[Rfam]
RNA sequence: CAAGUACAAUGGCAUCAUCCCUUGGGGAGUAGCCUGCGCCGGCCUUCGUGGUCAGGCGCCCGUGCAUCAACAGACUUGGCCCGCGUCCCCCGCGGCCAUGGUGCACGGGGCAGCAGCUUGGCGAGACCUUGGGCAUGGCUCGCGGCUCAUGGGUUGGGCGGCGUGGCCUUGCCCUUGUGUGACUCGGCCUUUGCC
Numbered sequence: 001c002a003a004g005u006a007c008a009a010u011g012g013c014a015u016c017a018u019c020c021c022u023u024g025g026g027g028a029g030u031a032g033c034c035u036g037c038g039c040c041g042g043c044c045u046u047c048g049u050g051g052u053c054a055g056g057c058g059c060c061c062g063u064g065c066a067u068c069a070a071c072a073g074a075c076u077u078g079g080c081c082c083g084c085g086u087c088c089c090c091c092g093c094g095g096c097c098a099u100g101g102u103g104c105a106c107g108g109g110g111c112a113g114c115a116g117c118u119u120g121g122c123g124a125g126a127c128c129u130u131g132g133g134c135a136u137g138g139c140u141c142g143c144g145g146c147u148c149a150u151g152g153g154u155u156g157g158g159c160g161g162c163g164u165g166g167c168c169u170u171g172c173c174c175u176u177g178u179g180u181g182a183c184u185c186g187g188c189c190u191u192u193g194c195c
Stems, first nucleotide, its partner, number of pairs: 037058003060108010077098005113194003
This 195-nucleotide RNA from Aquabacterium soli belongs to the Rfam family "Manganese Mn2+ riboswitch aptamer (yybP-ykoY)".